[Rfam]
RNA: Small nucleolar RNA SNORA61
Organism: Nannospalax galili
RNA sequence: ACCCAUCUGUUCCCUUUCCCAUCUGAUCUCAACACAGGUCUUGGUGGUCGUAAAGGAGAAAGAGCAUACUGAAGCUGGCCUAACAGCCUUGUGGUCUGGUAUAAGCAUAUGCGUUAGAUUCAAACAGGG
Numbered sequence: 001a002c003c004c005a006u007c008u009g010u011u012c013c014c015u016u017u018c019c020c021a022u023c024u025g026a027u028c029u030c031a032a033c034a035c036a037g038g039u040c041u042u043g044g045u046g047g048u049c050g051u052a053a054a055g056g057a058g059a060a061a062g063a064g065c066a067u068a069c070u071g072a073a074g075c076u077g078g079c080c081u082a083a084c085a086g087c088c089u090u091g092u093g094g095u096c097u098g099g100u101a102u103a104a105g106c107a108u109a110u111g112c113g114u115u116a117g118a119u120u121c122a123a124a125c126a127g128g129g
Stems, first nucleotide, its partner, number of pairs: 004058001006056002019047005025040004075117005081111001090107003